[Rfam]
RNA sequence: ACUGGCAUAAUGAUGAUUUCUUUUUGCCGUUUACCCAUCUGAAUGUAUGAUGUGUAUAUGUUCAAAUCUGAUAUGCCAGU
Dot-bracket structure: (((((((..................................................................)))))))